[Rfam]
RNA sequence: GCCACUGUAGCGAAAUGGUUAUCGCGUCGCUUUCCUAUCCGCGAACCACUAACGGGACUCGAACCCGUUGUCACGUGACUAGGCGAAGGUUGUGGGUUCGAGUCCCAUCAGUGGUU
Number, nucleotide and partner (000 for none) at each position: 001g115002c114003c113004a112005c111006u110007g109008u000009a000010g025011c024012g023013a022014a000015a000016u000017g000018g000019u000020u000021a000022u013023c012024g011025c010026g000027u086028c085029g084030c083031u082032u000033u000034c000035c000036u000037a000038u000039c000040c000041g000042c000043g000044a000045a000046c000047c000048a000049c000050u000051a000052a000053c000054g000055g000056g000057a000058c000059u000060c000061g000062a000063a000064c000065c000066c000067g000068u000069u000070g000071u000072c000073a000074c000075g000076u000077g000078a000079c000080u000081a000082g031083g030084c029085g028086a027087a000088g000089g000090u000091u000092g108093u107094g106095g105096g104097u000098u000099c000100g000101a000102g000103u000104c096105c095106c094107a093108u092109c007110a006111g005112u004113g003114g002115u001116u000
RNA: tRNA